[Rfam]
RNA sequence: AUCAGUCAAGGAUAGAACGGGCAGCUAUCACGCCUACCAACCAUAGUAGGUCUUCAAGAGAUGCAGGGGUGCCAGCCUGCUGAUUGAU
Dot-bracket structure: ((((((((..(((((....[[[[.))))).(((((((........))))))......)....(((((..]]]]..)))))))))))))
Numbered sequence: 001a002u003c004a005g006u007c008a009a010g011g012a013u014a015g016a017a018c019g020g021g022c023a024g025c026u027a028u029c030a031c032g033c034c035u036a037c038c039a040a041c042c043a044u045a046g047u048a049g050g051u052c053u054u055c056a057a058g059a060g061a062u063g064c065a066g067g068g069g070u071g072c073c074a075g076c077c078u079g080c081u082g083a084u085u086g087a088u
Stems, first nucleotide, its partner, number of pairs: 001088008011029005020073004031058001032051006063080005